[Rfam]
The family of this 95-nucleotide sequence from Gossypium aridum is "Plastid-rps12 3UTR RNA". Plastid rpl20 is a non-coding RNA (ncRNA) recognised in plastids. It was found in the three prime untranslated region (3UTR) of rps12 gene, its 3UTR location sugest a role in transcript maduration. Rfam classes the family as a cis-regulatory element.
RNA sequence: GAUUUUCAUUGGUGCAAAUCAAUCUUGGAAUUUAAGAUGAGAAAAAAUUUCCCAUUGGUAGCAAAUGUUUAUCCAUUAAGCAGAGAAAAUCUUAU
Numbered sequence: 001g002a003u004u005u006u007c008a009u010u011g012g013u014g015c016a017a018a019u020c021a022a023u024c025u026u027g028g029a030a031u032u033u034a035a036g037a038u039g040a041g042a043a044a045a046a047a048u049u050u051c052c053c054a055u056u057g058g059u060a061g062c063a064a065a066u067g068u069u070u071a072u073c074c075a076u077u078a079a080g081c082a083g084a085g086a087a088a089a090u091c092u093u094a095u
Base pairs, nucleotide, nucleotide: 009022010021011020012019050085052083054076055075057073058072059071060070061069